[Rfam]
RNA sequence: CCCAGGGCUUGCGCCCUGGGCUGUUGGCUGCCGCCCCUCCGGGGUU
Number, nucleotide and partner (000 for none) at each position: 001c020002c019003c018004a017005g016006g015007g014008c013009u000010u000011g000012c000013g008014c007015c006016c005017u004018g003019g002020g001021c000022u000023g000024u000025u000026g000027g000028c000029u000030g000031c000032c000033g045034c044035c043036c042037c041038u000039c000040c000041g037042g036043g035044g034045u033046u000

Shown here is a 46-nucleotide RNA sequence from Urbifossiella limnaea, a member of the family "Acido-Lenti-1 RNA". The organism belongs to Urbifossiella, within Bacteria.